[Rfam]
RNA sequence: CGGCAUAUUGGAGAUGGCAUUCCUCCCUCAACCGUCGAUUCCCCCGCGACUGAUGAUGCCUGCGAGCCC
Numbered sequence: 001c002g003g004c005a006u007a008u009u010g011g012a013g014a015u016g017g018c019a020u021u022c023c024u025c026c027c028u029c030a031a032c033c034g035u036c037g038a039u040u041c042c043c044c045c046g047c048g049a050c051u052g053a054u055g056a057u058g059c060c061u062g063c064g065a066g067c068c069c
Stems, first nucleotide, its partner, number of pairs: 010026004016060006034050004

Shown here is a 69-nucleotide RNA sequence from Paraburkholderia sp. DHOC27, a member of the family "Fluoride riboswitch aptamer (crcB RNA motif)".
Rfam 15.1 lists 2,293 matches to the family in 1,982 species.
It scores 48 bits against the family's covariance model.
NCBI's taxonomy places the organism under Bacteria, Pseudomonadati, Betaproteobacteria, Burkholderiaceae, Paraburkholderia.